[Rfam]
RNA sequence: UAGUUUGGUCAUCACUUGAGUAUCCUAACGGGCUUUUCGAGAAGAUGAUUACCAAAUUUAAACUAUAGGAGAUGUGUUAGUGGCCCGUAUAGCUGGCAUUAACGUUCCUGAU
Numbered sequence: 001u002a003g004u005u006u007g008g009u010c011a012u013c014a015c016u017u018g019a020g021u022a023u024c025c026u027a028a029c030g031g032g033c034u035u036u037u038c039g040a041g042a043a044g045a046u047g048a049u050u051a052c053c054a055a056a057u058u059u060a061a062a063c064u065a066u067a068g069g070a071g072a073u074g075u076g077u078u079a080g081u082g083g084c085c086c087g088u089a090u091a092g093c094u095g096g097c098a099u100u101a102a103c104g105u106u107c108c109u110g111a112u
Stems, first nucleotide, its partner, number of pairs: 004056006010047004024096002029087004037111003
RNA: Alpha operon ribosome binding site
Organism: Pseudoalteromonas ruthenica